[Rfam]
Rfam assigns this 165-nucleotide sequence from Lutispora thermophila to the family "M-box riboswitch aptamer (ykoK leader)". Rfam describes the family as follows. M-box riboswitch, also know as ykoK leader is described as a metaloregulatory RNA that sense divalent metals and function as a genetic control element of genes related to divalent metal transport in bacteria. It was first reported upstream of the B.subtilis ykoK gene and genes with related functions in other bacteria. The pairing is the family consensus, mapped onto this sequence. Gene Ontology terms of the family: regulation of gene expression and response to magnesium ion. The match comes from Rfam's covariance-model search (140 bits).
RNA sequence: AACAUAGCCCGUUAUGUGAGGCUACCUUGCAAAUAUACGCUGCUGCCGCUAAACAUCGAGAGAUGCCACGACGGUUAACAGAUUUUAUCGGAUUAAGGUUUAAUCUAAUGCAGCUGGGAUAUCCCAAAGUUGCAGGGUGCUAAAACUGUACGAGAGGGAUGCUAU
Numbered sequence: 001a002a003c004a005u006a007g008c009c010c011g012u013u014a015u016g017u018g019a020g021g022c023u024a025c026c027u028u029g030c031a032a033a034u035a036u037a038c039g040c041u042g043c044u045g046c047c048g049c050u051a052a053a054c055a056u057c058g059a060g061a062g063a064u065g066c067c068a069c070g071a072c073g074g075u076u077a078a079c080a081g082a083u084u085u086u087a088u089c090g091g092a093u094u095a096a097g098g099u100u101u102a103a104u105c106u107a108a109u110g111c112a113g114c115u116g117g118g119a120u121a122u123c124c125c126a127a128a129g130u131u132g133c134a135g136g137g138u139g140c141u142a143a144a145a146c147u148g149u150a151c152g153a154g155a156g157g158g159a160u161g162c163u164a165u
Stems, first nucleotide, its partner, number of pairs: 005161002008158003011151002013096001016146002020141003025137008039114005045075004054065004081105004087099003116125003